[Rfam]
RNA sequence: GUGCCUAUAGCUCAGUUGGAUAGAGCGGUCGCCUCCUAAGCGACAGGCCGUUGGUUCGAAUCCAAUUAGGCACG
Numbered sequence: 001g002u003g004c005c006u007a008u009a010g011c012u013c014a015g016u017u018g019g020a021u022a023g024a025g026c027g028g029u030c031g032c033c034u035c036c037u038a039a040g041c042g043a044c045a046g047g048c049c050g051u052u053g054g055u056u057c058g059a060a061u062c063c064a065a066u067u068a069g070g071c072a073c074g
Stems, first nucleotide, its partner, number of pairs: 001073007010026004028044005050066005
Dot-bracket structure: (((((((..((((.........)))).(((((.......))))).....(((((.......)))))))))))).